[Rfam]
RNA: SAM riboswitch aptamer (S box leader)
Organism: Polaribacter vadi
RNA sequence: ACGUUAUCACGAAAGGUAGAGGGAUUAGACCCUGUGAAGCCUUGGCAACCUCUCAUUUAUGAGAAAGGUGCUACAUUCUACAAGAAUACUAUGAAUUUAAUUCAUUUAUUUUUGACAGAUAACAG
Numbered sequence: 001a002c003g004u005u006a007u008c009a010c011g012a013a014a015g016g017u018a019g020a021g022g023g024a025u026u027a028g029a030c031c032c033u034g035u036g037a038a039g040c041c042u043u044g045g046c047a048a049c050c051u052c053u054c055a056u057u058u059a060u061g062a063g064a065a066a067g068g069u070g071c072u073a074c075a076u077u078c079u080a081c082a083a084g085a086a087u088a089c090u091a092u093g094a095a096u097u098u099a100a101u102u103c104a105u106u107u108a109u110u111u112u113u114g115a116c117a118g119a120u121a122a123c124a125g
Base pairs, nucleotide, nucleotide: 003123004122005121006120007119008118013043014042015041016040017039021032022031023030026080027079028078029077044072045071046070047069049068050067051064052063053062054061076117081114082113083112084111085110086109087108088107